[Rfam]
RNA sequence: CAAUGAAAUGAUGGUCAAAGCUCAUGGAAAUUGUAGGUCUUUUUGGCUUGCAUUUUCAAGAGAUU
Numbered sequence: 001c002a003a004u005g006a007a008a009u010g011a012u013g014g015u016c017a018a019a020g021c022u023c024a025u026g027g028a029a030a031u032u033g034u035a036g037g038u039c040u041u042u043u044u045g046g047c048u049u050g051c052a053u054u055u056u057c058a059a060g061a062g063a064u065u
Base pairs, nucleotide, nucleotide: 018065019064021062022061023060032052033051034050035049036048037047